Guanidine-I riboswitch aptamer: a 97-nucleotide sequence from Sporosarcina luteola. Lineage of the source: Bacteria > Bacillati > Bacilli > Caryophanales > Sporosarcina. The match comes from Rfam's covariance-model search (83 bits). Pairs were carried over by alignment from the consensus structure.
RNA sequence: ACAAAUGUUUUCUAGGGUUCCGCAACCGAUUGUUGGCCUGGUCCGAGAGAAAACUCACAGUUCAGCUGUGUCACGGAAGGAUAAAAGCCUGGGAGAA
Numbered sequence: 001a002c003a004a005a006u007g008u009u010u011u012c013u014a015g016g017g018u019u020c021c022g023c024a025a026c027c028g029a030u031u032g033u034u035g036g037c038c039u040g041g042u043c044c045g046a047g048a049g050a051a052a053a054c055u056c057a058c059a060g061u062u063c064a065g066c067u068g069u070g071u072c073a074c075g076g077a078a079g080g081a082u083a084a085a086a087g088c089c090u091g092g093g094a095g096a097a
Stems, first nucleotide, its partner, number of pairs: 007054006015044002020041002022038001023035004056070005072092001074095001078090003